[Rfam]
RNA sequence: CGUGCGCCGUCGCCGAAUCCCGCGCGCUCACCGCGCCGUGGGAACCGGGGAACCACCUUCUGGGGUGAAUCGGGCUGAUCAGAGGCGACUCUGACGGCCCGUAGGAGACCUUCCUGCUCCGAACCCGUCAGCUAACCCGGUAGGCGGAAGGAAGGAAAGGA
Numbered sequence: 001c002g003u004g005c006g007c008c009g010u011c012g013c014c015g016a017a018u019c020c021c022g023c024g025c026g027c028u029c030a031c032c033g034c035g036c037c038g039u040g041g042g043a044a045c046c047g048g049g050g051a052a053c054c055a056c057c058u059u060c061u062g063g064g065g066u067g068a069a070u071c072g073g074g075c076u077g078a079u080c081a082g083a084g085g086c087g088a089c090u091c092u093g094a095c096g097g098c099c100c101g102u103a104g105g106a107g108a109c110c111u112u113c114c115u116g117c118u119c120c121g122a123a124c125c126c127g128u129c130a131g132c133u134a135a136c137c138c139g140g141u142a143g144g145c146g147g148a149a150g151g152a153a154g155g156a157a158a159g160g161a
Stems, first nucleotide, its partner, number of pairs: 011146004018043007044141006054062002063126003071101007104120004
Shown here is a 161-nucleotide RNA sequence from Streptantibioticus cattleyicolor, a member of the family "c-di-AMP riboswitch aptamer (ydaO/yuaA leader)". Lineage of the source: Bacteria > Bacillati > Kitasatosporales > Streptomycetaceae > Streptantibioticus cattleyicolor.